[Rfam]
RNA sequence: GGGGGUGGAUGGGUCCGGUGGGGCCCGGUCUUCAAAACCGGUGGCGGGUGCUGUCGAGGCGGCCGCGGUGGGUUCGACUCCCACCUACUCCC
Numbered sequence: 001g002g003g004g005g006u007g008g009a010u011g012g013g014u015c016c017g018g019u020g021g022g023g024c025c026c027g028g029u030c031u032u033c034a035a036a037a038c039c040g041g042u043g044g045c046g047g048g049u050g051c052u053g054u055c056g057a058g059g060c061g062g063c064c065g066c067g068g069u070g071g072g073u074u075c076g077a078c079u080c081c082c083a084c085c086u087a088c089u090c091c092c
Stems, first nucleotide, its partner, number of pairs: 001092008014021002025041005044066004069083004
RNA: Selenocysteine transfer RNA